This 40-nucleotide RNA belongs to the Rfam family "Prion pseudoknot". The family has 148 seed sequences and 421 matches in Rfam 15.1. Rfam's curators write: This family represents a predicted pseudoknot structure found in prion protein mRNA. It has been suggested that the family has a possible effect in prion protein translation. On this family, see Barrette et al., Nucleic Acids Res 2001: "Pseudoknots in prion protein mRNAs confirmed by comparative sequence analysis and pattern searching". The base pairs follow the family's consensus structure, which is taken from published work.

RNA sequence: UGGUGGUGGUGGCUGGGGACAACCCCACGGUGGUGGCUGG
Dot-bracket structure: (.((((..................)))).)..........